The record is an 88-nucleotide RNA sequence, which matches "L4-Archaeoglobi ribosomal protein leades" in Rfam.
[Rfam]
RNA sequence: CUGACUGCGCUUGGGUUGAAAUCGGUUUGGAUUGCCCGGCCCUUUUGCGAACCGCGACGUUGCGCAAAGGGGAGCGCGUGACAGUUAA
Numbered sequence: 001c002u003g004a005c006u007g008c009g010c011u012u013g014g015g016u017u018g019a020a021a022u023c024g025g026u027u028u029g030g031a032u033u034g035c036c037c038g039g040c041c042c043u044u045u046u047g048c049g050a051a052c053c054g055c056g057a058c059g060u061u062g063c064g065c066a067a068a069g070g071g072g073a074g075c076g077c078g079u080g081a082c083a084g085u086u087a088a
Stems, first nucleotide, its partner, number of pairs: 002087004006078005012038004020033004040072010